This 90-nucleotide RNA sequence from Vulpes vulpes belongs to the Rfam family "mir-8799 microRNA precursor family". Clan: mir-8791 microRNA precursor clan.
RNA sequence: GGGGGGAGGUCGGAUCCUGGGCUGCGUCCGGACGCCCAGUGCUCCCAGGCCUGCGCUGUUGGAUUCGAGCUCCCGGCCGCGUAGCCGCCU
Numbered sequence: 001g002g003g004g005g006g007a008g009g010u011c012g013g014a015u016c017c018u019g020g021g022c023u024g025c026g027u028c029c030g031g032a033c034g035c036c037c038a039g040u041g042c043u044c045c046c047a048g049g050c051c052u053g054c055g056c057u058g059u060u061g062g063a064u065u066c067g068a069g070c071u072c073c074c075g076g077c078c079g080c081g082u083a084g085c086c087g088c089c090u
Stems, first nucleotide, its partner, number of pairs: 001090003005086002009082002011079003016076002019073003023069001025067002027063003031057001033055003039051001041050003
Dot-bracket structure: (((.((..(((((..((.(((.(.(((((.(.(((...(.(((....)))).))).)...)))..)).).))).))))).))..)).)))